[Rfam]
RNA sequence: CUGGCGGGACGACCCGACAGCGUCACUUUUUAUUCGGGGACGGCCCCG
Numbered sequence: 001c002u003g004g005c006g007g008g009a010c011g012a013c014c015c016g017a018c019a020g021c022g023u024c025a026c027u028u029u030u031u032a033u034u035c036g037g038g039g040a041c042g043g044c045c046c047c048g
Stems, first nucleotide, its partner, number of pairs: 001020003005016004035048005

Notes: Shown here is a 48-nucleotide RNA from Kosakonia cowanii, a member of the family "Guanidine-II riboswitch aptamer (mini-ykkC)". It scores 45 bits against the family's covariance model. A reference for the family is Sherlock et al. (2017), "Biochemical Validation of a Second Guanidine Riboswitch Class in Bacteria", Biochemistry. Simpler in structure and has fewer highly conserved nucleotide positions than the ykkC-yxkD leader. Despite this each of its two stem-loop structures directly bind free guanidine.